RNA sequence: AAAAAACUUACUAUUAUAUUUUAUAUCACAAUUUGUAUAAGCAUAAAAGCACUUAUACAGCCAUUCUGCUCGAAAUGGUACAGCGGUUUUUUAACUGGUGUUAUGAAUUGUAGCAACGCGAGAGUCGGCGUUAUAACAGGCUUGGCGGUACUCUGGUGCGGGUACUUUGUUAACGCUAAAAGUAGAAAGUAAGCUACUGCGUGACUUCUAGGGCGGAGUUUAGAAGAGUAGGCGAAUUAGACUGCGACAAAGUAAGU
Numbered sequence: 001a002a003a004a005a006a007c008u009u010a011c012u013a014u015u016a017u018a019u020u021u022u023a024u025a026u027c028a029c030a031a032u033u034u035g036u037a038u039a040a041g042c043a044u045a046a047a048a049g050c051a052c053u054u055a056u057a058c059a060g061c062c063a064u065u066c067u068g069c070u071c072g073a074a075a076u077g078g079u080a081c082a083g084c085g086g087u088u089u090u091u092u093a094a095c096u097g098g099u100g101u102u103a104u105g106a107a108u109u110g111u112a113g114c115a116a117c118g119c120g121a122g123a124g125u126c127g128g129c130g131u132u133a134u135a136a137c138a139g140g141c142u143u144g145g146c147g148g149u150a151c152u153c154u155g156g157u158g159c160g161g162g163u164a165c166u167u168u169g170u171u172a173a174c175g176c177u178a179a180a181a182g183u184a185g186a187a188a189g190u191a192a193g194c195u196a197c198u199g200c201g202u203g204a205c206u207u208c209u210a211g212g213g214c215g216g217a218g219u220u221u222a223g224a225a226g227a228g229u230a231g232g233c234g235a236a237u238u239a240g241a242c243u244g245c246g247a248c249a250a251a252g253u254a255a256g257u
Base pairs, nucleotide, nucleotide: 007193008192009191010190011189012188034059035058036057037056038055039054040053041052061078062077063076064075065074080101081100082099084097085096086095087094088093116131117130118129119128122143123142124141125140126139150219151218152217153216154215155214163254164253165252166251167250168249169248170247171246173202174201175200176199181198182197183196184195185194205226206225207224208223209222210221228245229244230243231242233240